[Rfam]
RNA sequence: AAAUAAGCUUGGAGACCUUUAAGGCCUUCCCUAAGACCUCGAGUACAAUUUUUGGAAAACCCUGUCUAUUCUUUAGGCAGGUUG
Numbered sequence: 001a002a003a004u005a006a007g008c009u010u011g012g013a014g015a016c017c018u019u020u021a022a023g024g025c026c027u028u029c030c031c032u033a034a035g036a037c038c039u040c041g042a043g044u045a046c047a048a049u050u051u052u053u054g055g056a057a058a059a060c061c062c063u064g065u066c067u068a069u070u071c072u073u074u075a076g077g078c079a080g081g082u083u084g
Base pairs, nucleotide, nucleotide: 022039023038024037026035027034028033059083061081062080063079064078065077066076067075